[Rfam]
RNA sequence: CGGACCAGACUAGGCGAUCGCGGGAUCGAAAGAUUUCGAGGAAAGUCCGAACACCGCAGGGCAGGACGCUCCAUAACGUGGAGUCGCAGCAAUGUGAAGGAAAGUGCAGCAGAGAAUAGACCGCCGGGCACCCCUUGGGGUGCCCGGUAAGGGUGAAACGGUGCGGUAAGAGCGCACCAGUUUUCCAGGUGACUGGAAAAGCUUGGUAAACCCCGUCCGGUGCAAGACCAAAUAGAGAAGCGUUUGAGGGUUGCCCGCCUGAGCUUCCGGGUAGGUUGCUUGAGGUGCACGGCAACGUGCAUCCUAGAUGAAUGAUCGCUGCCCCGGCAUCGGGUAACCGUGCAGGGGUACAGGAUUCGGCUUACUGGCUGAUCUGGCCG
Numbered sequence: 001c002g003g004a005c006c007a008g009a010c011u012a013g014g015c016g017a018u019c020g021c022g023g024g025a026u027c028g029a030a031a032g033a034u035u036u037c038g039a040g041g042a043a044a045g046u047c048c049g050a051a052c053a054c055c056g057c058a059g060g061g062c063a064g065g066a067c068g069c070u071c072c073a074u075a076a077c078g079u080g081g082a083g084u085c086g087c088a089g090c091a092a093u094g095u096g097a098a099g100g101a102a103a104g105u106g107c108a109g110c111a112g113a114g115a116a117u118a119g120a121c122c123g124c125c126g127g128g129c130a131c132c133c134c135u136u137g138g139g140g141u142g143c144c145c146g147g148u149a150a151g152g153g154u155g156a157a158a159c160g161g162u163g164c165g166g167u168a169a170g171a172g173c174g175c176a177c178c179a180g181u182u183u184u185c186c187a188g189g190u191g192a193c194u195g196g197a198a199a200a201g202c203u204u205g206g207u208a209a210a211c212c213c214c215g216u217c218c219g220g221u222g223c224a225a226g227a228c229c230a231a232a233u234a235g236a237g238a239a240g241c242g243u244u245u246g247a248g249g250g251u252u253g254c255c256c257g258c259c260u261g262a263g264c265u266u267c268c269g270g271g272u273a274g275g276u277u278g279c280u281u282g283a284g285g286u287g288c289a290c291g292g293c294a295a296c297g298u299g300c301a302u303c304c305u306a307g308a309u310g311a312a313u314g315a316u317c318g319c320u321g322c323c324c325c326g327g328c329a330u331c332g333g334g335u336a337a338c339c340g341u342g343c344a345g346g347g348g349u350a351c352a353g354g355a356u357u358c359g360g361c362u363u364a365c366u367g368g369c370u371g372a373u374c375u376g377g378c379c380g
Stems, first nucleotide, its partner, number of pairs: 001376004006371003010367001013320007021038007043363003047360005052222004059256004064218005069083005084098001085096004099213002104211002106207002121152002123148011160178006180202001181200008226277004237267005248260004284303008
This 380-nucleotide RNA from Desulforapulum autotrophicum belongs to the Rfam family "Bacterial RNase P class A".
The organism belongs to Desulforapulum autotrophicum, within Bacteria.